[Rfam]
RNA sequence: UAAAUAAAGGAGCAAUAACCAUUUCUUGUUCUAGCAAGUGUUGGUAUUGCUCCUUUAU
Dot-bracket structure: .....((((((((((((...(.(.((((......)))).).)..))))))))))))..
Source information:
A member of the RNA family "Plastid-psbA-4 3UTR RNA" from Gossypium australe, 58 nucleotides long. A reference for the family is Richter et al. (2023), "Retrograde signaling in plants: A critical review focusing on the GUN pathway and beyond", Plant Commun. The family's RNA type in Rfam is cis-regulatory element. From the family's description: Plastid psbA-4 is a non-coding RNA (ncRNA) present in plastids. It was identified in inverted repeat sequences in the 3 prime untranslate region (3UTR) of photosystem II quinone-binding protein (psbA).